[Rfam]
A member of the RNA family "DUF805 RNA" from Mesohalobacter halotolerans, 71 nucleotides long.
Taxonomically the source falls in Mesohalobacter (Bacteria, Bacteroidota, Flavobacteriia, Flavobacteriaceae).
The base pairs follow the family's consensus structure, which is taken from published work.
RNA sequence: UAAAAGUGGGGUCCAGAACCCACUCAAAAAAACGGGGCGUAAUCUGAAAAGCCUUAUGGGUAGGGAAAUUA
Numbered sequence: 001u002a003a004a005a006g007u008g009g010g011g012u013c014c015a016g017a018a019c020c021c022a023c024u025c026a027a028a029a030a031a032a033c034g035g036g037g038c039g040u041a042a043u044c045u046g047a048a049a050a051g052c053c054u055u056a057u058g059g060g061u062a063g064g065g066a067a068a069u070u071a
Stems, first nucleotide, its partner, number of pairs: 006023004036053003043065002